Source information
TPP riboswitch aptamer (THI element): a 98-nucleotide RNA sequence from Siminovitchia fortis. The source organism's lineage runs through Bacteria, Bacillati, Bacillota, Bacillaceae and Siminovitchia.
[Rfam]
RNA sequence: CGGCGUACCAAGGGGAGCUUUUUGCUGAGAGCGGACUCGUUCCGGACCCUUUGAACCUGUUAGAUAAUGCUAGCGCAGGGAUGGUAUAUAAACGGCAA
Numbered sequence: 001c002g003g004c005g006u007a008c009c010a011a012g013g014g015g016a017g018c019u020u021u022u023u024g025c026u027g028a029g030a031g032c033g034g035a036c037u038c039g040u041u042c043c044g045g046a047c048c049c050u051u052u053g054a055a056c057c058u059g060u061u062a063g064a065u066a067a068u069g070c071u072a073g074c075g076c077a078g079g080g081a082u083g084g085u086a087u088a089u090a091a092a093c094g095g096c097a098a
Base pairs, nucleotide, nucleotide: 006086007085008084009083010082011050012049013048014047017025018024032044033043034042035041056079057078058077059076060073061072062071063070
Source information:
Pairs were carried over by alignment from the consensus structure, which is taken from published work.